RNA sequence: UUCACGCCAGGAAAUGGUGUCUUCCUGCACAAGAACCGUCCGCUCAGGACUGAUGGCGCCUACAAAUAA
Numbered sequence: 001u002u003c004a005c006g007c008c009a010g011g012a013a014a015u016g017g018u019g020u021c022u023u024c025c026u027g028c029a030c031a032a033g034a035a036c037c038g039u040c041c042g043c044u045c046a047g048g049a050c051u052g053a054u055g056g057c058g059c060c061u062a063c064a065a066a067u068a069a
Base pairs, nucleotide, nucleotide: 010025011024012023013022016060017059018058019057020056021055038050039049040048041047

Record summary
A member of the RNA family "Fluoride riboswitch aptamer (crcB RNA motif)" from Chitinophaga rupis, 69 nucleotides long. It scores 50 bits against the family's covariance model. Lineage of the source: Bacteria > Pseudomonadati > Bacteroidota > Chitinophagaceae > Chitinophaga.